[Rfam]
RNA sequence: UGAGUCGGUCAAGGUGAUCGCGUCUGAUGAACCAAGGUGACUGGAUCACCCAGGCAUCAGCCGAGGAAAGUCUGGACUCCACAGAGCACGGUGGUUGUUAACGGCAACCCGGAGUGAUCCGCGGGAAAGUGCAACAGAAAGUAGACCGCCACCGGUUUUGGCCGGUGGUAAGGGUGAAAGGGUGCGGUAAGAGCGCACCGGCAGGCCAGGUGACUGGUCUGGCCAGGUAAACCCCACCGGGAGCAAGGCAUGAGGACGCACUCCAAUGGGUGUGUCUGUGCAGGCGUUUUAAAGGCUGCUCGCCGAGUCUGCAGGUAGCUGCUGGAGGCAGUCAGCAAUGGCUGUCCGAGAUGGAUGUUCACCGCCCGCGGGUAGGGUUUCGGCCCGGCCCGCGGGAACAGAAUCCGGCUUAUGCACCGGCUCAUUCG
Numbered sequence: 001u002g003a004g005u006c007g008g009u010c011a012a013g014g015u016g017a018u019c020g021c022g023u024c025u026g027a028u029g030a031a032c033c034a035a036g037g038u039g040a041c042u043g044g045a046u047c048a049c050c051c052a053g054g055c056a057u058c059a060g061c062c063g064a065g066g067a068a069a070g071u072c073u074g075g076a077c078u079c080c081a082c083a084g085a086g087c088a089c090g091g092u093g094g095u096u097g098u099u100a101a102c103g104g105c106a107a108c109c110c111g112g113a114g115u116g117a118u119c120c121g122c123g124g125g126a127a128a129g130u131g132c133a134a135c136a137g138a139a140a141g142u143a144g145a146c147c148g149c150c151a152c153c154g155g156u157u158u159u160g161g162c163c164g165g166u167g168g169u170a171a172g173g174g175u176g177a178a179a180g181g182g183u184g185c186g187g188u189a190a191g192a193g194c195g196c197a198c199c200g201g202c203a204g205g206c207c208a209g210g211u212g213a214c215u216g217g218u219c220u221g222g223c224c225a226g227g228u229a230a231a232c233c234c235c236a237c238c239g240g241g242a243g244c245a246a247g248g249c250a251u252g253a254g255g256a257c258g259c260a261c262u263c264c265a266a267u268g269g270g271u272g273u274g275u276c277u278g279u280g281c282a283g284g285c286g287u288u289u290u291a292a293a294g295g296c297u298g299c300u301c302g303c304c305g306a307g308u309c310u311g312c313a314g315g316u317a318g319c320u321g322c323u324g325g326a327g328g329c330a331g332u333c334a335g336c337a338a339u340g341g342c343u344g345u346c347c348g349a350g351a352u353g354g355a356u357g358u359u360c361a362c363c364g365c366c367c368g369c370g371g372g373u374a375g376g377g378u379u380u381c382g383g384c385c386c387g388g389c390c391c392g393c394g395g396g397a398a399c400a401g402a403a404u405c406c407g408g409c410u411u412a413u414g415c416a417c418c419g420g421c422u423c424a425u426u427c428g
Base pairs, nucleotide, nucleotide: 001424002423003422004421005420006419007418008417009416011413013363014362015361016360017359019357021063022062024060025059026058027057028056029055068411069410070409072408073407074406075405076404077243078242079241080240084301085300086299087298089239090238091237092236093235094108095107096106097105098104109123110121111120112119113118124234125233129232130231131228132227146173147172148169149168150167151166152165153164154163155162156161181199182198183197184196185195186194201223202221203220204219205218206217207216208215209214247320248319249318252312254310255309256308257307294304295303296302327346328345329344330343331342332341333340334339
Rfam assigns this 428-nucleotide RNA sequence from Corynebacterium efficiens to the family "Bacterial RNase P class A". About the family: Ribonuclease P (RNase P) is a ubiquitous endoribonuclease, found in archaea, bacteria and eukarya as well as chloroplasts and mitochondria. The base pairs follow the family's consensus structure, which is taken from published work. Rfam's curators put it in the seed alignment.